Shown here is a 354-nucleotide RNA from Propionispira arboris, a member of the family "Bacterial RNase P class A". By type it is a ribozyme.
RNA sequence: UGAGUAUGAAAAAUAAUCGCGAGUGCCUCGAGGCAUUUGAGGAAAGUCCGGGCUCCAUAGGGCAAUGUGCUGGAUAACGUCCAGCGAGGGUGACCUUAGGGAAAGUGCUAUAGAAAUUUAAACCGCCUGAUUUUAUCAGGUAAGGAUGGAAAGGUGCGGUAAGAGCGCACCAGCAGUUAGGUGACUAACUGGCUAGGUAAACCCCACACGGAGCAAGACCGAAUAGGGAAGGGAUGAUGCUGCCCGCGGAACCUUCCGGGUUGUGUCGCUUGAAUCAGUUGGCAACGGCUGAUCUAGAUAAAUGAUUAUUGCCGCGUAAGCGGAACAAAACUCGGCUUAAUGAUUGCUCAUAGU
Numbered sequence: 001u002g003a004g005u006a007u008g009a010a011a012a013a014u015a016a017u018c019g020c021g022a023g024u025g026c027c028u029c030g031a032g033g034c035a036u037u038u039g040a041g042g043a044a045a046g047u048c049c050g051g052g053c054u055c056c057a058u059a060g061g062g063c064a065a066u067g068u069g070c071u072g073g074a075u076a077a078c079g080u081c082c083a084g085c086g087a088g089g090g091u092g093a094c095c096u097u098a099g100g101g102a103a104a105g106u107g108c109u110a111u112a113g114a115a116a117u118u119u120a121a122a123c124c125g126c127c128u129g130a131u132u133u134u135a136u137c138a139g140g141u142a143a144g145g146a147u148g149g150a151a152a153g154g155u156g157c158g159g160u161a162a163g164a165g166c167g168c169a170c171c172a173g174c175a176g177u178u179a180g181g182u183g184a185c186u187a188a189c190u191g192g193c194u195a196g197g198u199a200a201a202c203c204c205c206a207c208a209c210g211g212a213g214c215a216a217g218a219c220c221g222a223a224u225a226g227g228g229a230a231g232g233g234a235u236g237a238u239g240c241u242g243c244c245c246g247c248g249g250a251a252c253c254u255u256c257c258g259g260g261u262u263g264u265g266u267c268g269c270u271u272g273a274a275u276c277a278g279u280u281g282g283c284a285a286c287g288g289c290u291g292a293u294c295u296a297g298a299u300a301a302a303u304g305a306u307u308a309u310u311g312c313c314g315c316g317u318a319a320g321c322g323g324a325a326c327a328a329a330a331c332u333c334g335g336c337u338u339a340a341u342g343a344u345u346g347c348u349c350a351u352a353g354u
Base pairs, nucleotide, nucleotide: 001350002349003348004347005346006345010341012310013309014308015307016306017305018304020039021038022037023036024035025034026033027032044338045337046336048335049334050333051332052331053213054212055211056210060245061244062243063242066208067207068206069205070084071083072082073081074080085099086097087096088095089094100204101203105202106201107198108197109196123145124144125141126140127139128138129137130136131135153171154170155169156168157167158166173193174191175190176189177188178187179186180185217267218266219265220263227257228256229255230254231253232252238248239247240246274293275292276291277290278289279288280287281286